[Rfam]
RNA: Small nucleolar RNA SNORA63
RNA sequence: AAGCAGGAUUCAGACUACAAUAUAGCUGUUUAGUGCUGUGUUGUCGUUCCCCCUGCUCAAAGUAAGGUUGUUUCUUACUAUACCUGUCUGCUCUAUCCCUGUAGCAGCCAGGGACGCUUGGUCUCAUACA
Dot-bracket structure: ..(((((.........((((((((((........)))))))))).......)))))..........................((((.((((............)))).))))..................